RNA sequence: UUGCAUCUAUUUGACGGGCCUGGAGCAGUUCCUGUUUGCUAAGGUUUCCACUACAGAUGCAAGAAAAAAGUGUCCUCACAUUUUCCAUGUGUCUGAUUGUGGCAGCCCAGAUUGAAUGGGGGAAUACAGGA
Numbered sequence: 001u002u003g004c005a006u007c008u009a010u011u012u013g014a015c016g017g018g019c020c021u022g023g024a025g026c027a028g029u030u031c032c033u034g035u036u037u038g039c040u041a042a043g044g045u046u047u048c049c050a051c052u053a054c055a056g057a058u059g060c061a062a063g064a065a066a067a068a069a070g071u072g073u074c075c076u077c078a079c080a081u082u083u084u085c086c087a088u089g090u091g092u093c094u095g096a097u098u099g100u101g102g103c104a105g106c107c108c109a110g111a112u113u114g115a116a117u118g119g120g121g122g123a124a125u126a127c128a129g130g131a
Stems, first nucleotide, its partner, number of pairs: 002061007012050002016047005024040005073123005081114001084111002090104004

Shown here is a 131-nucleotide sequence from Tursiops truncatus, a member of the family "Small nucleolar RNA SNORA31". By type it is an H/ACA-box small nucleolar RNA. From the family's description: ACA31 (SNORA31) belongs to the H/ACA class of snoRNAs which are thought to guide the sites of modification of uridines to pseudouridines. ACA31 is predicted to guide the pseudouridylation of U3713 in 28S rRNA and U218 in 18S rRNA. This family includes the mouse homologue snoMBI-161. The base pairs follow the family's consensus structure, which was predicted with RNAalifold.